[Rfam]
RNA: c-di-AMP riboswitch aptamer (ydaO/yuaA leader)
Nucleotides: 177
Stems, first nucleotide, its partner, number of pairs: 001160002036157006046085001086142003094120003123136004
Number, partner (000 for none) and nucleotide at each position: 001160c002159c003000g004000g005000u006000g007000u008000c009000c010000c011000c012000u013000c014000c015000g016000a017000g018000u019000c020000g021000u022000c023000a024000c025000c026000u027000c028000g029000g030000g031000c032000a033000g034000g035000a036157g037156c038155g039154g040153g041152g042000g043000a044000c045000c046085c047000a048000c049000c050000u051000c052000c053000a054000c055000c056000g057000a058000c059000c060000g061000g062000c063000a064000c065000c066000a067000a068000g069000a070000a071000g072000u073000g074000g075000u076000g077000c078000g079000g080000g081000u082000c083000u084000a085046g086142g087141g088140g089000u090000g091000a092000a093000g094120u095119c096118c097000a098000u099000c100000g101000c102000g103000u104000g105000a106000a107000g108000g109000u110000c111000g112000c113000g114000c115000g116000a117000c118096g119095g120094a121000c122000c123136g124135g125134g126133c127000a128000g129000c130000c131000c132000a133126g134125c135124c136123c137000g138000a139000a140088c141087c142086c143000g144000a145000c146000a147000g148000c149000u150000c151000a152041c153040c154039u155038c156037g157036c158000a159002g160001g161000c162000g163000u164000a165000c166000g167000g168000g169000a170000a171000g172000g173000a174000a175000c176000g177000c